Shown here is an 89-nucleotide RNA sequence from Aquibacillus salsiterrae, a member of the family "c-di-GMP-I-GGC riboswitch aptamer".
It scores 73 bits against the family's covariance model.
The source organism's lineage runs through Bacteria, Bacillati, Bacilli, Caryophanales and Aquibacillus.

[Rfam]
RNA sequence: ACCGAUAAAGGCAAACUUAUCGAAAGGUAAGGACGCAAAGCCACGGGCCUACAGCAAAACAUUUGCUACUGGUAGCCGGGUCGCCGAAG
Numbered sequence: 001a002c003c004g005a006u007a008a009a010g011g012c013a014a015a016c017u018u019a020u021c022g023a024a025a026g027g028u029a030a031g032g033a034c035g036c037a038a039a040g041c042c043a044c045g046g047g048c049c050u051a052c053a054g055c056a057a058a059a060c061a062u063u064u065g066c067u068a069c070u071g072g073u074a075g076c077c078g079g080g081u082c083g084c085c086g087a088a089g
Stems, first nucleotide, its partner, number of pairs: 003086002011036002016031006034075001040081003044078003047073003
Dot-bracket structure: ..((......((...((((((....))))))..[))...(((.((((((.....................))).]))))))...))...